[Rfam]
This 96-nucleotide RNA sequence from Theropithecus gelada belongs to the Rfam family "Y RNA". The family's consensus secondary structure is taken from published work. A reference for the family is Chen et al. (2000), "Ro ribonucleoproteins contribute to the resistance of Deinococcus radiodurans to ultraviolet irradiation", Genes Dev. NCBI's taxonomy places the organism under Eukaryota, Chordata, Boreoeutheria, Simiiformes, Theropithecus.
RNA sequence: GGUUGGUCUGAUGGGAGUGGGUUAUCAGAACUUAUUAACAUUAGUGUUACUAAAGUUGGUUUACAGCCCCCCACUGUUAAAUUUGACUGGCUUUUA
Dot-bracket structure: ((((((((.((....((((((.......(((..(.....................)..)))........)))))).......))))))))))....